[Rfam]
The record is a 68-nucleotide RNA from Bacillus sp. V59.32b, which matches "Bacillaceae-1 RNA" in Rfam.

RNA sequence: AAGUAAGGACCCUCAGCUAAAAUCCGUCACGUCCUGUGACGAACGCUGACGUCACCACAUCCUGUGGA
Numbered sequence: 001a002a003g004u005a006a007g008g009a010c011c012c013u014c015a016g017c018u019a020a021a022a023u024c025c026g027u028c029a030c031g032u033c034c035u036g037u038g039a040c041g042a043a044c045g046c047u048g049a050c051g052u053c054a055c056c057a058c059a060u061c062c063u064g065u066g067g068a
Stems, first nucleotide, its partner, number of pairs: 011051001013049005026040005055067004